SraB RNA: a 168-nucleotide sequence from Citrobacter freundii.
Taxonomically the source falls in Citrobacter freundii complex (Bacteria, Gammaproteobacteria, Enterobacterales, Citrobacter).
A reference for the family is Argaman et al. (2001), "Novel small RNA-encoding genes in the intergenic regions of Escherichia coli", Curr Biol.
The family's RNA type in Rfam is small RNA.

[Rfam]
RNA sequence: GAGGCAUAUUUUUUCCCUCGCAUAUAGCGUAAUGAUGAGAGCCAUUUUAAACUAGGGCUCUCGACCUUCAAGUUGGCUGCUAUGGCCAGACUUGAGUGAUUUUAAGUCGAUGACCCGCAAUGUGUGCGAAUUAUUGGCAAAAGGCAACCUCAGGCUGCCUUUUUCUUU
Dot-bracket structure: ................((((...............)))).....................(((.....(((.((((((.....))))))..)))..)))..........((((..((((.....))))..))))....((((((((.((...)).)))))))).....